Overview
U8 small nucleolar RNA: a 135-nucleotide RNA from Heterocephalus glaber. A reference for the family is Peculis et al. (2001), "The U8 snoRNA gene family: identification and characterization of distinct, functional U8 genes in Xenopus", Gene. The family's RNA type in Rfam is C/D-box small nucleolar RNA. Lineage of the source: Eukaryota > Opisthokonta > Vertebrata > Theria > Heterocephalus. It scores 136 bits against the family's covariance model. Gene Ontology terms of the family: nucleolus and RNA processing.
[Rfam]
RNA sequence: UCGUCAGGUGGGAUAAUCCUUACCUGUUUCUCCGUUUGGAGAACAGCUAGAAUAUGAUGAUUGGAGUAUGCAUGAUGCGUGAUUAACGUUUAUGCGUAAUCAGGGCUUGCAACACUCUGAUUGCUCCUAUCUGAU
Numbered sequence: 001u002c003g004u005c006a007g008g009u010g011g012g013a014u015a016a017u018c019c020u021u022a023c024c025u026g027u028u029u030c031u032c033c034g035u036u037u038g039g040a041g042a043a044c045a046g047c048u049a050g051a052a053u054a055u056g057a058u059g060a061u062u063g064g065a066g067u068a069u070g071c072a073u074g075a076u077g078c079g080u081g082a083u084u085a086a087c088g089u090u091u092a093u094g095c096g097u098a099a100u101c102a103g104g105g106c107u108u109g110c111a112a113c114a115c116u117c118u119g120a121u122u123g124c125u126c127c128u129a130u131c132u133g134a135u
Stems, first nucleotide, its partner, number of pairs: 024046003028043006075091001077089003080085001096124009